[Rfam]
The family of this 68-nucleotide RNA sequence from Kribbella antiqua is "ASdes TB sRNA".

RNA sequence: AGCUCGUCGGGAUCGACCCCCCGGGUCACCAGCAGAUAGUCGCGGAUGCAGAAGGCGUGCCUGCCCUC
Numbered sequence: 001a002g003c004u005c006g007u008c009g010g011g012a013u014c015g016a017c018c019c020c021c022c023g024g025g026u027c028a029c030c031a032g033c034a035g036a037u038a039g040u041c042g043c044g045g046a047u048g049c050a051g052a053a054g055g056c057g058u059g060c061c062u063g064c065c066c067u068c
Base pairs, nucleotide, nucleotide: 004063006061008059009058011030013028015027016026017025018024035056037054040052041051042049043048
The base pairs follow the family's consensus structure, which is taken from published work.
NCBI's taxonomy places the organism under Bacteria, Bacillati, Actinomycetota, Actinomycetes, Kribbella.
By type it is a small RNA.